The family of this 77-nucleotide RNA sequence from Alligator mississippiensis is "Mammalian CPEB3 ribozyme". The mammalian CPEB3 ribozyme is a self cleaving RNA located in the second intron of the CPEB3 gene which belongs to a family of genes regulating messenger RNA polyadenylation.

[Rfam]
RNA sequence: AGCUGCAAGUUCAAGGCCAUAGCAGAAGCACCCACAAUGGGGCUCUGUCAGAUUCCAGUGAAUCUGUGAAUUCUGCU
Numbered sequence: 001a002g003c004u005g006c007a008a009g010u011u012c013a014a015g016g017c018c019a020u021a022g023c024a025g026a027a028g029c030a031c032c033c034a035c036a037a038u039g040g041g042g043c044u045c046u047g048u049c050a051g052a053u054u055c056c057a058g059u060g061a062a063u064c065u066g067u068g069a070a071u072u073c074u075g076c077u
Stems, first nucleotide, its partner, number of pairs: 014044002017042002021077007029039002049066007
Pairs were carried over by alignment from the consensus structure, which is taken from published work. A search with the family's covariance model found it, with a score of 50 bits. Rfam links the family to the GO term RNA nuclease activity. The organism belongs to Alligator, within Eukaryota.